[Rfam]
RNA sequence: GCGGUCCUGAACCUGGCACACAGUGUAGAGAUCUGUUGGUCAAGUUACAGCUACAUUGUCUGCUGGGUUUCAGAGACGCUUC
Numbered sequence: 001g002c003g004g005u006c007c008u009g010a011a012c013c014u015g016g017c018a019c020a021c022a023g024u025g026u027a028g029a030g031a032u033c034u035g036u037u038g039g040u041c042a043a044g045u046u047a048c049a050g051c052u053a054c055a056u057u058g059u060c061u062g063c064u065g066g067g068u069u070u071c072a073g074a075g076a077c078g079c080u081u082c
Base pairs, nucleotide, nucleotide: 013066014065015064016063017062018061020059021058022057023056024055025054026053027052028051033050034049035048036047
RNA: mir-221 microRNA precursor family
Organism: Carassius auratus